The family of this 73-nucleotide sequence from marine actinobacterium PHSC20C1 is "tRNA". Lineage of the source: Bacteria > Bacillati > Actinomycetota > Actinomycetes. From the family's description: Transfer RNA (tRNA) molecules are approximately 80 nucleotides in length. A search with the family's covariance model found it, with a score of 66 bits. The family's consensus secondary structure is taken from published work. Its family is annotated with triplet codon-amino acid adaptor activity in the Gene Ontology. Rfam classes the family as a transfer RNA.
[Rfam]
RNA sequence: GCCCUCGUAGCUCAGGGGAUAGAGCAGGAGCCUUCUAAUCUCUUGGUCGCAGGUUCGAAUCCUGCCGAGGGCA
Numbered sequence: 001g002c003c004c005u006c007g008u009a010g011c012u013c014a015g016g017g018g019a020u021a022g023a024g025c026a027g028g029a030g031c032c033u034u035c036u037a038a039u040c041u042c043u044u045g046g047u048c049g050c051a052g053g054u055u056c057g058a059a060u061c062c063u064g065c066c067g068a069g070g071g072c073a
Stems, first nucleotide, its partner, number of pairs: 001072007010025004027043004049065005